[Rfam]
A member of the RNA family "Ribosomal protein L10 leader" from Roseburia sp. CAG:380, 135 nucleotides long. About the family: This family is a putative r-protein leader autoregulatory structure found in B. subtilis and other low-GC Gram-positive bacteria. Rfam links the family to the GO term regulation of gene expression. A search with the family's covariance model found it, with a score of 76 bits. Taxonomically the source falls in Roseburia (Bacteria, Bacillota, Clostridia, Lachnospirales).
RNA sequence: UGAAAACAAGUCAUACUGCCGUAGACAGUAGGUGCUGAUAGCUCAGCGUAAGGAAACCGCCUACCGAGGAAGGAUGUAAUUAUUUUGAUGAUUUCACCUCUCUGUGUUUACGCAGGGAGGUUUUUUAAUAAGAAC
Numbered sequence: 001u002g003a004a005a006a007c008a009a010g011u012c013a014u015a016c017u018g019c020c021g022u023a024g025a026c027a028g029u030a031g032g033u034g035c036u037g038a039u040a041g042c043u044c045a046g047c048g049u050a051a052g053g054a055a056a057c058c059g060c061c062u063a064c065c066g067a068g069g070a071a072g073g074a075u076g077u078a079a080u081u082a083u084u085u086u087g088a089u090g091a092u093u094u095c096a097c098c099u100c101u102c103u104g105u106g107u108u109u110a111c112g113c114a115g116g117g118a119g120g121u122u123u124u125u126u127a128a129u130a131a132g133a134a135c
Stems, first nucleotide, its partner, number of pairs: 028064006034047003097120010